[Rfam]
RNA sequence: CCCAUCCAGCAAGCGCCCGGACUGUUUUGGACGAAAAAGAAAACAGUUGACGAGGUGGAGGUGUAUCGAUUGUAUCGGCGGAUACCUCCCGGUUGAAUAAGAUCACAACCGAAAGCCGGAGCCCAAAACGAAGAGGCGACUUUUCGCACAAACGCUUCGGCAUUGAUCGCU
Numbered sequence: 001c002c003c004a005u006c007c008a009g010c011a012a013g014c015g016c017c018c019g020g021a022c023u024g025u026u027u028u029g030g031a032c033g034a035a036a037a038a039g040a041a042a043a044c045a046g047u048u049g050a051c052g053a054g055g056u057g058g059a060g061g062u063g064u065a066u067c068g069a070u071u072g073u074a075u076c077g078g079c080g081g082a083u084a085c086c087u088c089c090c091g092g093u094u095g096a097a098u099a100a101g102a103u104c105a106c107a108a109c110c111g112a113a114a115g116c117c118g119g120a121g122c123c124c125a126a127a128a129c130g131a132a133g134a135g136g137c138g139a140c141u142u143u144u145c146g147c148a149c150a151a152a153c154g155c156u157u158c159g160g161c162a163u164u165g166a167u168c169g170c171u
Stems, first nucleotide, its partner, number of pairs: 020048008057089005066078004090111006115161007129146007
RNA: glmS glucosamine-6-phosphate activated ribozyme aptamer